The family of this 77-nucleotide RNA from Rhodoplanes serenus is "Makes More Granules Regulator RNA (mmgR)". It scores 74 bits against the family's covariance model. NCBI's taxonomy places the organism under Bacteria, Pseudomonadati, Alphaproteobacteria, Nitrobacteraceae, Rhodoplanes. Rfam classes the family as a small RNA. Rfam 15.1 lists 1,791 matches to the family in 918 species. The base pairs follow the family's consensus structure.
Nucleotides: 077
Stems, first nucleotide, its partner, number of pairs: 008020004039062006045055003
Number, partner (000 for none) and nucleotide at each position: 001000c002000g003000a004000c005000a006000u007000u008020g009019c010018c011017c012000u013000c014000c015000u016000u017011g018010g019009g020008c021000g022000u023000u024000u025000c026000c027000u028000c029000c030000c031000u032000a033000g034000a035000c036000u037000u038000g039062g040061g041060c042059c043058g044057c045055c046054g047053g048000c049000u050000u051000c052000g053047c054046c055045g056000c057044g058043c059042g060041g061040c062039c063000u064000u065000u066000u067000u068000u069000u070000u071000g072000c073000g074000c075000a076000g077000g